[Rfam]
RNA sequence: GCCCCGGGUUCAAGUAAUCCAGGAUAGGCUGUGGUCUGGGCAGUCAGCCUGUUCUUGGUUACUUGGCUCCGGAGUUGG
Numbered sequence: 001g002c003c004c005c006g007g008g009u010u011c012a013a014g015u016a017a018u019c020c021a022g023g024a025u026a027g028g029c030u031g032u033g034g035u036c037u038g039g040g041c042a043g044u045c046a047g048c049c050u051g052u053u054c055u056u057g058g059u060u061a062c063u064u065g066g067c068u069c070c071g072g073a074g075u076u077g078g
Stems, first nucleotide, its partner, number of pairs: 001075002004072005011065009021055010
mir-26 microRNA precursor family: a 78-nucleotide sequence from Mesitornis unicolor. Rfam links the family to the GO terms RISC complex and miRNA-mediated post-transcriptional gene silencing. For this family Rfam cites "Identification of novel genes coding for small expressed RNAs" (Lagos-Quintana et al., Science, 2001). NCBI's taxonomy places the organism under Eukaryota, Craniata, Theropoda, Neoaves, Mesitornis.